[Rfam]
RNA: Selenocysteine transfer RNA
RNA sequence: GCGGGACUGACCCCUGGCGGCCAGGGCGCGGACUUCAAAUCCGUGGCGGCCGCGAGGCCGAGCGGUUCGACUCCGCCUGACUCGC
Numbered sequence: 001g002c003g004g005g006a007c008u009g010a011c012c013c014c015u016g017g018c019g020g021c022c023a024g025g026g027c028g029c030g031g032a033c034u035u036c037a038a039a040u041c042c043g044u045g046g047c048g049g050c051c052g053c054g055a056g057g058c059c060g061a062g063c064g065g066u067u068c069g070a071c072u073c074c075g076c077c078u079g080a081c082u083c084g085c
Stems, first nucleotide, its partner, number of pairs: 001085005007079001009077001012026006027045006047060005062076004